[Rfam]
RNA sequence: AUACAUCUAGAUCCAUACCCCUAAACUCCCUAGAUGUUUUUUUGGAUAGCGAUUAUCGCUGUCCUUUUUUA
Numbered sequence: 001a002u003a004c005a006u007c008u009a010g011a012u013c014c015a016u017a018c019c020c021c022u023a024a025a026c027u028c029c030c031u032a033g034a035u036g037u038u039u040u041u042u043u044g045g046a047u048a049g050c051g052a053u054u055a056u057c058g059c060u061g062u063c064c065u066u067u068u069u070u071a
Stems, first nucleotide, its partner, number of pairs: 004036006044064009